This 76-nucleotide sequence from Alligator mississippiensis belongs to the Rfam family "Mammalian CPEB3 ribozyme". The base pairs follow the family's consensus structure, which is taken from published work. Its family is annotated with RNA nuclease activity in the Gene Ontology.
[Rfam]
RNA sequence: CUCGCAAGUUCAAGGCUGUAGCAGAAGCACUCAUGGCAUGGCCCUGUCAGAUUCCAAAGAAUCUGUGAAUUUUGCU
Number, nucleotide and partner (000 for none) at each position: 001c000002u000003c000004g000005c000006a000007a000008g000009u000010u000011c000012a000013a000014g043015g042016c041017u040018g000019u000020a076021g075022c074023a073024g072025a071026a070027g039028c000029a000030c000031u000032c000033a000034u000035g000036g000037c000038a000039u027040g017041g016042c015043c014044c000045u000046g000047u000048c065049a064050g063051a062052u061053u060054c059055c000056a000057a000058a000059g054060a053061a052062u051063c050064u049065g048066u000067g000068a000069a000070u026071u025072u024073u023074g022075c021076u020